[Rfam]
RNA sequence: AUAAGCCCUUUCACUUUACCAUUUGGAUUGGUUUGUCUAUAGUGGUCAUUCAAAAGGGCAAUAUUCAUAUCCCCUUAAAACGCAGGCAAAUACUGGAUAAUUUGCUUGUGUCCUGUCAGUGGAGACAAUC
Numbered sequence: 001a002u003a004a005g006c007c008c009u010u011u012c013a014c015u016u017u018a019c020c021a022u023u024u025g026g027a028u029u030g031g032u033u034u035g036u037c038u039a040u041a042g043u044g045g046u047c048a049u050u051c052a053a054a055a056g057g058g059c060a061a062u063a064u065u066c067a068u069a070u071c072c073c074c075u076u077a078a079a080a081c082g083c084a085g086g087c088a089a090a091u092a093c094u095g096g097a098u099a100a101u102u103u104g105c106u107u108g109u110g111u112c113c114u115g116u117c118a119g120u121g122g123a124g125a126c127a128a129u130c
Stems, first nucleotide, its partner, number of pairs: 034060005043052003070123003074119002083108009